Rfam assigns this 85-nucleotide RNA sequence from Algibacter luteus to the family "Flavo-1 RNA". A search with the family's covariance model found it, with a score of 44 bits.
[Rfam]
RNA sequence: UUACACCCGCGUUAGGGAUUGUAAUGGCUAGCUUUUGGCGAGGCGCGCAUCGAGCCAAAACUAGUAAUGAAAAGCCCGACCCUUG
Numbered sequence: 001u002u003a004c005a006c007c008c009g010c011g012u013u014a015g016g017g018a019u020u021g022u023a024a025u026g027g028c029u030a031g032c033u034u035u036u037g038g039c040g041a042g043g044c045g046c047g048c049a050u051c052g053a054g055c056c057a058a059a060a061c062u063a064g065u066a067a068u069g070a071a072a073a074g075c076c077c078g079a080c081c082c083u084u085g
Stems, first nucleotide, its partner, number of pairs: 015077003019073002024068002029063003035058005